[Rfam]
RNA sequence: GACCCAGAACCGUGAGGAAAACGGCCCCUUACGGAUCGGGCACUACACACUAAAGGAG
Number, nucleotide and partner (000 for none) at each position: 001g000002a000003c040004c039005c038006a000007g037008a036009a000010c034011c033012g032013u031014g030015a029016g028017g027018a000019a000020a000021a000022c000023g000024g000025c000026c000027c017028c016029u015030u014031a013032c012033g011034g010035a000036u008037c007038g005039g004040g003041c000042a000043c000044u000045a000046c000047a000048c000049a000050c000051u000052a000053a000054a000055g000056g000057a000058g000
A member of the RNA family "L20-Deltaproteobacteria ribosomal protein leader", 58 nucleotides long. Rfam classes the family as a cis-regulatory leader. For this family Rfam cites "Discovery of 20 novel ribosomal leader candidates in bacteria and archaea" (Eckert and Weinberg, BMC Microbiol, 2020).